Shown here is a 380-nucleotide sequence from Cutibacterium granulosum, a member of the family "Bacterial RNase P class A". Its family is annotated with ribonuclease P activity, dimeric ribonuclease P complex and tRNA processing in the Gene Ontology. The base pairs follow the family's consensus structure, which is taken from published work. Taxonomically the source falls in Cutibacterium granulosum (Bacteria, Bacillati, Propionibacteriales, Propionibacteriaceae).

[Rfam]
RNA sequence: GAGCCACCCGGGGUGAUCGCGGCAGACGAUGAUCUGUCGAGGAAAGUCCGGGCUCCACAGGGCAGGGUGGUGGGUAACGCCCACCCGGGGAGACCCGCGGGACAGUGCCACAGAAAACAAACUGCCGAGAAAUCGGUGAGGGUGAAACGGUGAGGCAAGAGCUCACCGCGGCAUCGGUGACGGUGUCGGCACGGCAAACCCCACCCGGAGCAAGGCCAAGAAGACCGUGAGGUCGCGGACGUGUUCGAGGGCUGCCCGCCCGAGCGCCCGGGUAGGCCGCGCAGCUGCAAGGCUGGAGGGCGUCGGCAACGACGUUCACAGAUGGAUGAUCACCGGCCCCCAUGGGGUCACAGAACCCGGCUUACAAGGGUGGCUCGUCC
Numbered sequence: 001g002a003g004c005c006a007c008c009c010g011g012g013g014u015g016a017u018c019g020c021g022g023c024a025g026a027c028g029a030u031g032a033u034c035u036g037u038c039g040a041g042g043a044a045a046g047u048c049c050g051g052g053c054u055c056c057a058c059a060g061g062g063c064a065g066g067g068u069g070g071u072g073g074g075u076a077a078c079g080c081c082c083a084c085c086c087g088g089g090g091a092g093a094c095c096c097g098c099g100g101g102a103c104a105g106u107g108c109c110a111c112a113g114a115a116a117a118c119a120a121a122c123u124g125c126c127g128a129g130a131a132a133u134c135g136g137u138g139a140g141g142g143u144g145a146a147a148c149g150g151u152g153a154g155g156c157a158a159g160a161g162c163u164c165a166c167c168g169c170g171g172c173a174u175c176g177g178u179g180a181c182g183g184u185g186u187c188g189g190c191a192c193g194g195c196a197a198a199c200c201c202c203a204c205c206c207g208g209a210g211c212a213a214g215g216c217c218a219a220g221a222a223g224a225c226c227g228u229g230a231g232g233u234c235g236c237g238g239a240c241g242u243g244u245u246c247g248a249g250g251g252c253u254g255c256c257c258g259c260c261c262g263a264g265c266g267c268c269c270g271g272g273u274a275g276g277c278c279g280c281g282c283a284g285c286u287g288c289a290a291g292g293c294u295g296g297a298g299g300g301c302g303u304c305g306g307c308a309a310c311g312a313c314g315u316u317c318a319c320a321g322a323u324g325g326a327u328g329a330u331c332a333c334c335g336g337c338c339c340c341c342a343u344g345g346g347g348u349c350a351c352a353g354a355a356c357c358c359g360g361c362u363u364a365c366a367a368g369g370g371u372g373g374c375u376c377g378u379c380c
Stems, first nucleotide, its partner, number of pairs: 001376009011365001012334007020039007044363003048360005053210004060257004065206005070084005085099001086097004100201002105199002107195003122141002124137005149167006168190001169188008214278004237269002240266003249261004298317008